[Rfam]
The family of this 85-nucleotide RNA sequence from Neobacillus bataviensis is "c-di-GMP-I riboswitch aptamer".
The family's consensus secondary structure is taken from published work.
Gene Ontology term of the family: cyclic-di-GMP binding.
Taxonomically the source falls in Neobacillus bataviensis (Bacteria, Bacilli, Bacillaceae, Neobacillus).
RNA sequence: CGUACGAAACGGCAAAACCAUUGAAAGAUGGUGACGCAAAACUAUAGGGGCUAAUGUUUACCAACGAUGCUUGCCAGUUACCGAA
Numbered sequence: 001c002g003u004a005c006g007a008a009a010c011g012g013c014a015a016a017a018c019c020a021u022u023g024a025a026a027g028a029u030g031g032u033g034a035c036g037c038a039a040a041a042c043u044a045u046a047g048g049g050g051c052u053a054a055u056g057u058u059u060a061c062c063a064a065c066g067a068u069g070c071u072u073g074c075c076a077g078u079u080a081c082c083g084a085a
Stems, first nucleotide, its partner, number of pairs: 012037002017032006040079004047075002049071003056065003